[Rfam]
RNA sequence: UGGCUGCACUCAACAUUCAUUGCUGUCGGUGGGUUUCGGGUUCGGUCAGCCCUCUGGCUAAUGAAUGCAAACUGCGGGUCA
Numbered sequence: 001u002g003g004c005u006g007c008a009c010u011c012a013a014c015a016u017u018c019a020u021u022g023c024u025g026u027c028g029g030u031g032g033g034u035u036u037c038g039g040g041u042u043c044g045g046u047c048a049g050c051c052c053u054c055u056g057g058c059u060a061a062u063g064a065a066u067g068c069a070a071a072c073u074g075c076g077g078g079u080c081a
Base pairs, nucleotide, nucleotide: 001081002080003079004077005076006075007074008073014067015066016065017064018063019062020061021060022059025058026057027056028055029054031052033050034049035048
The record is an 81-nucleotide sequence from Pseudonaja textilis, which matches "mir-181 microRNA precursor family" in Rfam.
The base pairs follow the family's consensus structure, which was predicted with PFOLD.
Its family is annotated with RISC complex and miRNA-mediated post-transcriptional gene silencing in the Gene Ontology.
It scores 58 bits against the family's covariance model.
The organism belongs to Pseudonaja, within Eukaryota.